[Rfam]
Group II catalytic intron D1-D4-6: a 256-nucleotide RNA from Osedax symbiont Rs1.
NCBI's taxonomy places the organism under Bacteria, Pseudomonadati, Pseudomonadota, Gammaproteobacteria, Oceanospirillaceae.
From the family's description: Group II introns are found in rRNA, tRNA and mRNA of organelles in fungi, plants and protists, and also in mRNA in bacteria.
It scores 122 bits against the family's covariance model.

RNA sequence: UCAUUCCUCAGUUCGGUAAGGUUUAGCAGACCGCCGAAACCCCGAGUCAUGGGCUUUGCAUCCGGCAGCGUAAGGUGUCGAGUUAAGCGUUGACAGGGGAAAGCAUAGGCUGGGUAUUGAGCUGCGCUUACGUUUUAGAAUAAGUAUCUUUAAGAGUGCUGAGCUAGUUGUGUGAUAAGGAAGGCAAUACGAUGAAUAGCCAUAAAACCUGCCAGGUGACGCUAGUUAUUCUUCGGCUCUUCGCAGUCAUAGACCU
Numbered sequence: 001u002c003a004u005u006c007c008u009c010a011g012u013u014c015g016g017u018a019a020g021g022u023u024u025a026g027c028a029g030a031c032c033g034c035c036g037a038a039a040c041c042c043c044g045a046g047u048c049a050u051g052g053g054c055u056u057u058g059c060a061u062c063c064g065g066c067a068g069c070g071u072a073a074g075g076u077g078u079c080g081a082g083u084u085a086a087g088c089g090u091u092g093a094c095a096g097g098g099g100a101a102a103g104c105a106u107a108g109g110c111u112g113g114g115u116a117u118u119g120a121g122c123u124g125c126g127c128u129u130a131c132g133u134u135u136u137a138g139a140a141u142a143a144g145u146a147u148c149u150u151u152a153a154g155a156g157u158g159c160u161g162a163g164c165u166a167g168u169u170g171u172g173u174g175a176u177a178a179g180g181a182a183g184g185c186a187a188u189a190c191g192a193u194g195a196a197u198a199g200c201c202a203u204a205a206a207a208c209c210u211g212c213c214a215g216g217u218g219a220c221g222c223u224a225g226u227u228a229u230u231c232u233u234c235g236g237c238u239c240u241u242c243g244c245a246g247u248c249a250u251a252g253a254c255c256u
Stems, first nucleotide, its partner, number of pairs: 012038005020032004040099004046094004050089002052084005058078005119248001121247006152241006158185003165177002190235003194231007